[Rfam]
RNA sequence: AGCAUCAAAGAUAAAAACACAGUUCUGGUUGGUAGUCCAGACGCAGCUAAGCUGUCAGUAACCUGCCUCCUUGGUUGUCCGUUCUUUGUUCAUUUAUU
Numbered sequence: 001a002g003c004a005u006c007a008a009a010g011a012u013a014a015a016a017a018c019a020c021a022g023u024u025c026u027g028g029u030u031g032g033u034a035g036u037c038c039a040g041a042c043g044c045a046g047c048u049a050a051g052c053u054g055u056c057a058g059u060a061a062c063c064u065g066c067c068u069c070c071u072u073g074g075u076u077g078u079c080c081g082u083u084c085u086u087u088g089u090u091c092a093u094u095u096a097u098u
Stems, first nucleotide, its partner, number of pairs: 004090001006088006022042002025040004043055005065075003
Rfam assigns this 98-nucleotide sequence from Anaerosacchariphilus polymeriproducens to the family "azaaromatic riboswitch aptamer (yjdF RNA)". The base pairs follow the family's consensus structure, which is taken from published work. The match comes from Rfam's covariance-model search (89 bits). The organism belongs to Anaerosacchariphilus, within Bacteria.